[Rfam]
RNA sequence: GGCGGCCCUGGUGUCGGGGCCGUCCUUCCCACCCGGUACCUGAUACGGCCGGAGUGG
Number, nucleotide and partner (000 for none) at each position: 001g024002g023003c022004g021005g020006c019007c018008c017009u016010g000011g000012u000013g000014u000015c000016g009017g008018g007019g006020c005021c004022g003023u002024c001025c000026u000027u000028c000029c057030c056031a055032c000033c052034c051035g050036g049037u048038a000039c000040c000041u000042g000043a000044u000045a000046c000047g000048g037049c036050c035051g034052g033053a000054g000055u031056g030057g029
RNA: L17-Actino-Proteobacteria ribosomal protein leader